[Rfam]
Shown here is a 33-nucleotide RNA from Paenibacillus stellifer, a member of the family "L31-Firmicutes ribosomal protein leader".
RNA sequence: CUCUGGGUCCGCAUGAGGCUCAGGGCAAAAGAG
Number, nucleotide and partner (000 for none) at each position: 001c025002u024003c023004u022005g021006g020007g019008u018009c017010c000011g000012c000013a000014u000015g000016a000017g009018g008019c007020u006021c005022a004023g003024g002025g001026c000027a000028a000029a000030a000031g000032a000033g000
The sequence is in the family's curated seed alignment. The family is grouped with related families in Rfam's "Ribosomal Protein L31 Leader clan".